[Rfam]
RNA sequence: GUUGCUUCUUACUUGUGAACACCUCUUAAUUUUAUAUAUGGGGUAUUCCUGUUUCGGAAGCAUAGAUUGAUGUCUUUGCCAGUAUUAAACAACGUGAUAAGUACAUAAUGUUGCAUCGCGUUACCUGUCUUCUGGUACAACC
Numbered sequence: 001g002u003u004g005c006u007u008c009u010u011a012c013u014u015g016u017g018a019a020c021a022c023c024u025c026u027u028a029a030u031u032u033u034a035u036a037u038a039u040g041g042g043g044u045a046u047u048c049c050u051g052u053u054u055c056g057g058a059a060g061c062a063u064a065g066a067u068u069g070a071u072g073u074c075u076u077u078g079c080c081a082g083u084a085u086u087a088a089a090c091a092a093c094g095u096g097a098u099a100a101g102u103a104c105a106u107a108a109u110g111u112u113g114c115a116u117c118g119c120g121u122u123a124c125c126u127g128u129c130u131u132c133u134g135g136u137a138c139a140a141c142c
Stems, first nucleotide, its partner, number of pairs: 003062006017048003021044005078136005084130001091122003095118004